[Rfam]
RNA sequence: AUUCAUCUCUCGGGGUGCUACCAAAACUAUAAAGUUAAAAAGUAGCUGAGACAGCCUAAGCUGGUCCGUUGAACUUGAACCGAUUAAUAUCGGCGUAAGGAAGAGAUUGUAUUUGACU
Numbered sequence: 001a002u003u004c005a006u007c008u009c010u011c012g013g014g015g016u017g018c019u020a021c022c023a024a025a026a027c028u029a030u031a032a033a034g035u036u037a038a039a040a041a042g043u044a045g046c047u048g049a050g051a052c053a054g055c056c057u058a059a060g061c062u063g064g065u066c067c068g069u070u071g072a073a074c075u076u077g078a079a080c081c082g083a084u085u086a087a088u089a090u091c092g093g094c095g096u097a098a099g100g101a102a103g104a105g106a107u108u109g110u111a112u113u114u115g116a117c118u
Stems, first nucleotide, its partner, number of pairs: 006106005011068004016063001017046005053062003074099004080093004
Overview
Shown here is a 118-nucleotide RNA sequence from Sulfurovum sp. bin170, a member of the family "TPP riboswitch aptamer (THI element)". It scores 68 bits against the family's covariance model. The source organism's lineage runs through Bacteria, Pseudomonadati, Epsilonproteobacteria, Campylobacterales and Sulfurovum.